[Rfam]
RNA sequence: UAAAGAAAGUGAUGAAAGUUGUAGAUCUGUGAUAAUCUUUUGAUGAUCGAUAAAAUUCCAACUCGCUACGUUCUUUCUGAUUCUUAC
Numbered sequence: 001u002a003a004a005g006a007a008a009g010u011g012a013u014g015a016a017a018g019u020u021g022u023a024g025a026u027c028u029g030u031g032a033u034a035a036u037c038u039u040u041u042g043a044u045g046a047u048c049g050a051u052a053a054a055a056u057u058c059c060a061a062c063u064c065g066c067u068a069c070g071u072u073c074u075u076u077c078u079g080a081u082u083c084u085u086a087c
Stems, first nucleotide, its partner, number of pairs: 004084004
RNA: Small nucleolar RNA R32/R81/Z41
Organism: Brassica cretica